Shown here is a 113-nucleotide sequence from Paenibacillus sp. Leaf72, a member of the family "Glycine riboswitch aptamer".
A reference for the family is Mandal et al. (2004), "A glycine-dependent riboswitch that uses cooperative binding to control gene expression", Science.

[Rfam]
RNA sequence: CUCUGGAGAGCAUUCGCCACGAGCGAAUCACCCAAGGGGAAACUUACGCAUAUAUGACGUAUUUUGUCAUGUUUUUCAAGGCGUGGGACAACUCUCAGGUACAAAGGACAGAG
Numbered sequence: 001c002u003c004u005g006g007a008g009a010g011c012a013u014u015c016g017c018c019a020c021g022a023g024c025g026a027a028u029c030a031c032c033c034a035a036g037g038g039g040a041a042a043c044u045u046a047c048g049c050a051u052a053u054a055u056g057a058c059g060u061a062u063u064u065u066g067u068c069a070u071g072u073u074u075u076u077c078a079a080g081g082c083g084u085g086g087g088a089c090a091a092c093u094c095u096c097a098g099g100u101a102c103a104a105a106g107g108a109c110a111g112a113g
Stems, first nucleotide, its partner, number of pairs: 001113005012028004030100003034095001037094003043087007